[Rfam]
RNA sequence: UGCGAGACCCAUCAAAUGAGUAGUUUCCUACUUAGAAGCUACUUUACCAUAUUCUGAAUCC
Number, nucleotide and partner (000 for none) at each position: 001u000002g000003c000004g000005a000006g000007a000008c000009c000010c000011a000012u000013c000014a000015a000016a000017u000018g044019a043020g042021u041022a040023g039024u038025u037026u036027c035028c000029u000030a000031c000032u000033u000034a000035g027036a026037a025038g024039c023040u022041a021042c020043u019044u018045u000046a000047c000048c000049a000050u000051a000052u000053u000054c000055u000056g000057a000058a000059u000060c000061c000
Shown here is a 61-nucleotide RNA sequence from Prunus armeniaca, a member of the family "Plastid-psbN 5UTR RNA".
It is annotated as a cis-regulatory element.
Rfam describes the family as follows. Plastid psbN is a non-coding RNA (ncRNA) recognised in plastids. It was reported as a conserved 11 stem-loop in the prime untranslated region (5UTR) of psbN genes. It has been reported that the motif is retained in a subset of mature transcripts in barley, which can suggests a possible role in transcript alternative 5 prime processing.
Lineage of the source: Eukaryota > Viridiplantae > Embryophyta > Amygdaloideae > Prunus.